Background:
Rfam assigns this 181-nucleotide sequence from Nitrosospira multiformis to the family "Manganese Mn2+ riboswitch aptamer (yybP-ykoY)".
[Rfam]
RNA sequence: CAAGUAGAAUAUUCCGGUCAUCGGGGAGUAGCUUCCUUCCGUCGAAUAGAAGGGCUUGCAUCAACAUACUUGACCCGUGGUCGUGGUGCAAGGAGUUCGUGCCUGGCAAGACCUUUGACCACAUUGUCUCCGGAAGGGCGGGGAGAAGCCUGGUCUCGCUUCUUGUCCGGCCUGGAGCGUA
Numbered sequence: 001c002a003a004g005u006a007g008a009a010u011a012u013u014c015c016g017g018u019c020a021u022c023g024g025g026g027a028g029u030a031g032c033u034u035c036c037u038u039c040c041g042u043c044g045a046a047u048a049g050a051a052g053g054g055c056u057u058g059c060a061u062c063a064a065c066a067u068a069c070u071u072g073a074c075c076c077g078u079g080g081u082c083g084u085g086g087u088g089c090a091a092g093g094a095g096u097u098c099g100u101g102c103c104u105g106g107c108a109a110g111a112c113c114u115u116u117g118a119c120c121a122c123a124u125u126g127u128c129u130c131c132g133g134a135a136g137g138g139c140g141g142g143g144a145g146a147a148g149c150c151u152g153g154u155c156u157c158g159c160u161u162c163u164u165g166u167c168c169g170g171c172c173u174g175g176a177g178c179g180u181a
Base pairs, nucleotide, nucleotide: 035053036052037051055092056091057090058089059088060087061086062085063084071083072082073081074080075079096181098179099178100177
Taxonomically the source falls in Nitrosospira multiformis (Bacteria, Pseudomonadati, Betaproteobacteria, Nitrosomonadales).